[Rfam]
RNA sequence: ACGGCCUGCCUCGUGAUCGUCUUCUCACCCUUCACGCGGGCAGGCGCGUAAAGGGCGGAGCCCCCUGCGAGGACGUGACUCGCCAGGGGGCUCCGC
Numbered sequence: 001a002c003g004g005c006c007u008g009c010c011u012c013g014u015g016a017u018c019g020u021c022u023u024c025u026c027a028c029c030c031u032u033c034a035c036g037c038g039g040g041c042a043g044g045c046g047c048g049u050a051a052a053g054g055g056c057g058g059a060g061c062c063c064c065c066u067g068c069g070a071g072g073a074c075g076u077g078a079c080u081c082g083c084c085a086g087g088g089g090g091c092u093c094c095g096c
Base pairs, nucleotide, nucleotide: 001049002048003047005044006043007042008041009040010039011038013035014034015033016032019029055096056095057094058093059092060091061090062089063088064087065086067083068082069081070080071079
The family of this 96-nucleotide RNA from Streptomyces sp. NRRL F-4489 is "sodF sRNA". NCBI's taxonomy places the organism under Bacteria, Actinomycetes, Kitasatosporales, Streptomycetaceae, Streptomyces. The pairing is the family consensus, mapped onto this sequence. A search with the family's covariance model found it, with a score of 77 bits.